[Rfam]
RNA sequence: ACGCACGGACAGCGGCGGGGGACCCAACGAUGUGCGGCGGCAGAGUCUGCCGUCUUGGGGUGAAGCCGGGGCAGCUGACCGGCCGGGCAAAGCCAGCGUGGCCGCGUUCUCGUACCACGGGAGCGCUUCACGUGCCCGAACCCGACAGCUCACUUCGCA
Numbered sequence: 001a002c003g004c005a006c007g008g009a010c011a012g013c014g015g016c017g018g019g020g021g022a023c024c025c026a027a028c029g030a031u032g033u034g035c036g037g038c039g040g041c042a043g044a045g046u047c048u049g050c051c052g053u054c055u056u057g058g059g060g061u062g063a064a065g066c067c068g069g070g071g072c073a074g075c076u077g078a079c080c081g082g083c084c085g086g087g088c089a090a091a092g093c094c095a096g097c098g099u100g101g102c103c104g105c106g107u108u109c110u111c112g113u114a115c116c117a118c119g120g121g122a123g124c125g126c127u128u129c130a131c132g133u134g135c136c137c138g139a140a141c142c143c144g145a146c147a148g149c150u151c152a153c154u155u156c157g158c159a
Stems, first nucleotide, its partner, number of pairs: 002014003015158006025057002058143003066082004085137004

Shown here is a 159-nucleotide RNA from Nakamurella aerolata, a member of the family "c-di-AMP riboswitch aptamer (ydaO/yuaA leader)". The match comes from Rfam's covariance-model search (44 bits). Gene Ontology terms of the family: regulation of gene expression and cyclic-di-AMP binding. The organism belongs to Nakamurella, within Bacteria. Rfam describes the family as follows. This family represents a conserved RNA structure found upstream of the ydaO and yuaA genes in Bacillus subtilis and related genes in other bacteria.